Rfam assigns this 91-nucleotide sequence from Streptomyces lucensis to the family "Streptomyces RNA 3202". From the family's description: Identified by deep sequencing of transcriptome at the end of exponential growth phase. Appears smaller on northern blot than sequencing transcript.

RNA sequence: CCACGUCCCGGCGCAAUCCCCCCCGGCGCCGGGACCUUCCAGAGCCGGGCUUCGGCGCCUACCCCCCCAGGCGCCGGGGCCCGGCUUGUUU
Numbered sequence: 001c002c003a004c005g006u007c008c009c010g011g012c013g014c015a016a017u018c019c020c021c022c023c024c025g026g027c028g029c030c031g032g033g034a035c036c037u038u039c040c041a042g043a044g045c046c047g048g049g050c051u052u053c054g055g056c057g058c059c060u061a062c063c064c065c066c067c068c069a070g071g072c073g074c075c076g077g078g079g080c081c082c083g084g085c086u087u088g089u090u091u
Stems, first nucleotide, its partner, number of pairs: 005035006012028003042087010053076008
The organism belongs to Streptomyces lucensis, within Bacteria. For this family Rfam cites "Deep sequencing-based identification of small non-coding RNAs in Streptomyces coelicolor" (Vockenhuber et al., RNA Biol, 2011). It scores 82 bits against the family's covariance model.